[Rfam]
RNA sequence: UCACUCUUGAUUCUCUUCAGAUCGUAUAAAUCUUUCGCCUUUUACUAAAGAUUUCCGUGGAGAGGCUCAACAAGAGUUUAUCUCAAUUUUUUGAUGCCCUGCAUUAGCGGGGCU
Numbered sequence: 001u002c003a004c005u006c007u008u009g010a011u012u013c014u015c016u017u018c019a020g021a022u023c024g025u026a027u028a029a030a031u032c033u034u035u036c037g038c039c040u041u042u043u044a045c046u047a048a049a050g051a052u053u054u055c056c057g058u059g060g061a062g063a064g065g066c067u068c069a070a071c072a073a074g075a076g077u078u079u080a081u082c083u084c085a086a087u088u089u090u091u092u093g094a095u096g097c098c099c100u101g102c103a104u105u106a107g108c109g110g111g112g113c114u
Stems, first nucleotide, its partner, number of pairs: 003077004009068002012065008028054008094114001096113006